[Rfam]
RNA sequence: GGAGAGGUGGCCGAGUGGCUGAAGGCGCUGGUUUCGAAAACCUGUAACGGGUCACACCGUUCGUGGGUUCGAAUCCCACCCUCUCCG
Numbered sequence: 001g002g003a004g005a006g007g008u009g010g011c012c013g014a015g016u017g018g019c020u021g022a023a024g025g026c027g028c029u030g031g032u033u034u035c036g037a038a039a040a041c042c043u044g045u046a047a048c049g050g051g052u053c054a055c056a057c058c059g060u061u062c063g064u065g066g067g068u069u070c071g072a073a074u075c076c077c078a079c080c081c082u083c084u085c086c087g
Stems, first nucleotide, its partner, number of pairs: 001086007010026003028044001030042003063079005
Shown here is an 87-nucleotide RNA from Phycisphaera mikurensis, a member of the family "tRNA". Its family is annotated with triplet codon-amino acid adaptor activity in the Gene Ontology. Rfam describes the family as follows. Transfer RNA (tRNA) molecules are approximately 80 nucleotides in length. Their secondary structure includes four short double-helical elements and three loops (D, anti-codon, and T loops). By type it is a transfer RNA. The family's consensus secondary structure is taken from published work.